[Rfam]
RNA sequence: ACAGAAUAUUGGUAAACCUAUUGAAAAAUAGGGACACAAAGCCAUAGGGUCUAAAUCUAUUUAUAGAUAUGACAGCCGGUUGCAUGU
Numbered sequence: 001a002c003a004g005a006a007u008a009u010u011g012g013u014a015a016a017c018c019u020a021u022u023g024a025a026a027a028a029u030a031g032g033g034a035c036a037c038a039a040a041g042c043c044a045u046a047g048g049g050u051c052u053a054a055a056u057c058u059a060u061u062u063a064u065a066g067a068u069a070u071g072a073c074a075g076c077c078g079g080u081u082g083c084a085u086g087u
Base pairs, nucleotide, nucleotide: 012037013036017032018031019030020029021028022027040081041080042079043078047077048076049073050072051071056067057066058065059064
RNA: c-di-GMP-I riboswitch aptamer
Organism: Paenibacillus sp. FSL H7-0737